[Rfam]
RNA sequence: GAUCAUGGGCUGCGUCUACUCCACCACAAUAGGCGCGGUUCUGAAAAUAAGGAGGAAAAAACAUUCCGUCAGAUUCACGGUGCGGCAGUGUGGAGACCUGUCGUAAUGCGGAGGGUCAAAAAACCUCCGCGAGAGCAUUUGCGCGGAGGCGCAAUGCUUAGAAUCAAAACUAUGGCU
Numbered sequence: 001g002a003u004c005a006u007g008g009g010c011u012g013c014g015u016c017u018a019c020u021c022c023a024c025c026a027c028a029a030u031a032g033g034c035g036c037g038g039u040u041c042u043g044a045a046a047a048u049a050a051g052g053a054g055g056a057a058a059a060a061a062c063a064u065u066c067c068g069u070c071a072g073a074u075u076c077a078c079g080g081u082g083c084g085g086c087a088g089u090g091u092g093g094a095g096a097c098c099u100g101u102c103g104u105a106a107u108g109c110g111g112a113g114g115g116u117c118a119a120a121a122a123a124c125c126u127c128c129g130c131g132a133g134a135g136c137a138u139u140u141g142c143g144c145g146g147a148g149g150c151g152c153a154a155u156g157c158u159u160a161g162a163a164u165c166a167a168a169a170c171u172a173u174g175g176c177u
Stems, first nucleotide, its partner, number of pairs: 007041012066080004072165005081105008090097002108130005114125003133159007142151003